RNA sequence: UCUCGGGCCACCCCUCCCCAACGAGGGGCGACCAUCUGAGAGGGUGGACGAC
Numbered sequence: 001u002c003u004c005g006g007g008c009c010a011c012c013c014c015u016c017c018c019c020a021a022c023g024a025g026g027g028g029c030g031a032c033c034a035u036c037u038g039a040g041a042g043g044g045u046g047g048a049c050g051a052c
Stems, first nucleotide, its partner, number of pairs: 011028006032047006